Shown here is a 91-nucleotide RNA from Kluyveromyces lactis, a member of the family "Small nucleolar RNA snR57".
[Rfam]
RNA sequence: UUCUAAAUGAUUAUAAAAACAAAAUAUUUAUAACUGAGGAAGUAUAUGCAGGACAUAUUGUUAUUUAGGAAUUCUUCGUUUAUGAUCAGGA
Numbered sequence: 001u002u003c004u005a006a007a008u009g010a011u012u013a014u015a016a017a018a019a020c021a022a023a024a025u026a027u028u029u030a031u032a033a034c035u036g037a038g039g040a041a042g043u044a045u046a047u048g049c050a051g052g053a054c055a056u057a058u059u060g061u062u063a064u065u066u067a068g069g070a071a072u073u074c075u076u077c078g079u080u081u082a083u084g085a086u087c088a089g090g091a
Stems, first nucleotide, its partner, number of pairs: 001091004

Rfam classes the family as a C/D-box small nucleolar RNA. Pairs were carried over by alignment from the consensus structure. The sequence is in the family's curated seed alignment.